[Rfam]
RNA sequence: GCCCUCGUUCAUGGGGAGUAGCCUGCCUUCUUCGAAGGCGCUCGCGUCAACACACUCGGCCGUCACUGGCCGUGGCGCGCGCAGCAAACCUGCCUGGCGAGACCAUAGACAUGCCGACGCAAGCUGCCCGGGCCGGGCACGCGGCAUGUCAUGGUCCACCUGCCCGGCCGUGGAAUGUUGCGAU
Numbered sequence: 001g002c003c004c005u006c007g008u009u010c011a012u013g014g015g016g017a018g019u020a021g022c023c024u025g026c027c028u029u030c031u032u033c034g035a036a037g038g039c040g041c042u043c044g045c046g047u048c049a050a051c052a053c054a055c056u057c058g059g060c061c062g063u064c065a066c067u068g069g070c071c072g073u074g075g076c077g078c079g080c081g082c083a084g085c086a087a088a089c090c091u092g093c094c095u096g097g098c099g100a101g102a103c104c105a106u107a108g109a110c111a112u113g114c115c116g117a118c119g120c121a122a123g124c125u126g127c128c129c130g131g132g133c134c135g136g137g138c139a140c141g142c143g144g145c146a147u148g149u150c151a152u153g154g155u156c157c158a159c160c161u162g163c164c165c166g167g168c169c170g171u172g173g174a175a176u177g178u179u180g181c182g183a184u
Base pairs, nucleotide, nucleotide: 026038027037028036040082041081043079044078045077046076047075048074049073057072058071059070060069061068083184085182086179087178
Manganese Mn2+ riboswitch aptamer (yybP-ykoY): a 184-nucleotide RNA sequence from Chitinasiproducens palmae.
Rfam describes the family as follows. This RNA was originally discovered in E. coli during a large scale screen and was named SraF. The family was later found to exist upstream of related families of protein genes in many bacteria, including the the yybP and ykoK genes in B. subtilis.
A search with the family's covariance model found it, with a score of 57 bits.